This 75-nucleotide sequence from Candidatus Sulfurimonas marisnigri belongs to the Rfam family "c-di-GMP-I-GGC riboswitch aptamer".
Pairs were carried over by alignment from the consensus structure, which is taken from published work.
For this family Rfam cites "Bioinformatic analysis of riboswitch structures uncovers variant classes with altered ligand specificity" (Weinberg et al., Proc Natl Acad Sci U S A, 2017).
[Rfam]
RNA sequence: UUAGAAAAAGCCAACCUUGUUGCGAAGCAAGCACGGAAAGUUAUGGGUCUUUUAUAGAUCGCCAGACUGCCUAGG
Numbered sequence: 001u002u003a004g005a006a007a008a009a010g011c012c013a014a015c016c017u018u019g020u021u022g023c024g025a026a027g028c029a030a031g032c033a034c035g036g037a038a039a040g041u042u043a044u045g046g047g048u049c050u051u052u053u054a055u056a057g058a059u060c061g062c063c064a065g066a067c068u069g070c071c072u073a074g075g
Base pairs, nucleotide, nucleotide: 001075003072004071011036012035016031017030018029019028020027021026034061039068040067041066042065044064045063046062047059048058049057